[Rfam]
About this RNA:
The family of this 117-nucleotide RNA sequence from Clostridium kluyveri is "THF (Tetrahydrofolate) riboswitch aptamer". The organism belongs to Clostridium kluyveri, within Bacteria. Its family is annotated with tetrahydrofolate metabolic process in the Gene Ontology. About the family: Tetrahydrofolate (THF) riboswitch was first reported for Ames et al. as an RNA motif in 5' untranslated (5'-UTR)regions of folate transport and biosynthesis genes in Firmicutes genomes.
RNA sequence: AGCAGAGUAAAUAUUAUGCGUAAAGUGUUAGAGAAUGGGAGGUUGUCUCUAAACGAAAAGCUUAAAUACUUGUUAUAUAAGAUUUAAAGCUUACGAUAUAAUAUUGCUUCCGCUGUU
Numbered sequence: 001a002g003c004a005g006a007g008u009a010a011a012u013a014u015u016a017u018g019c020g021u022a023a024a025g026u027g028u029u030a031g032a033g034a035a036u037g038g039g040a041g042g043u044u045g046u047c048u049c050u051a052a053a054c055g056a057a058a059a060g061c062u063u064a065a066a067u068a069c070u071u072g073u074u075a076u077a078u079a080a081g082a083u084u085u086a087a088a089g090c091u092u093a094c095g096a097u098a099u100a101a102u103a104u105u106g107c108u109u110c111c112g113c114u115g116u117u
Base pairs, nucleotide, nucleotide: 001117002116003115004114005113010105011104012103013102014101015100016099017098018097019095020094021093025054026053028052029051030050031049032048033047034046038111039110040109041108042107058092059091060090061089062088063087